[Rfam]
RNA: Alphaproteobacterial ar14
Organism: Octadecabacter sp. SW4
RNA sequence: AAGGUUUUAAGCGCUCCCACCUCCUCCCUUCAGGGCGCGCUUAAUCGUGGUGGUUUGGUCUUCCUCCUCCCUGACCGGCCACCAAGACUGACGCGGCGGCAUCACCUCCUCCCGAUGUCGCCGCAUCAC
Numbered sequence: 001a002a003g004g005u006u007u008u009a010a011g012c013g014c015u016c017c018c019a020c021c022u023c024c025u026c027c028c029u030u031c032a033g034g035g036c037g038c039g040c041u042u043a044a045u046c047g048u049g050g051u052g053g054u055u056u057g058g059u060c061u062u063c064c065u066c067c068u069c070c071c072u073g074a075c076c077g078g079c080c081a082c083c084a085a086g087a088c089u090g091a092c093g094c095g096g097c098g099g100c101a102u103c104a105c106c107u108c109c110u111c112c113c114g115a116u117g118u119c120g121c122c123g124c125a126u127c128a129c
Base pairs, nucleotide, nucleotide: 007044008043009042011040012039013038014037016035017034049083050082051081052080053079054078056077057076058075059074093124094123095122096121097120098119099118100117101116102115103114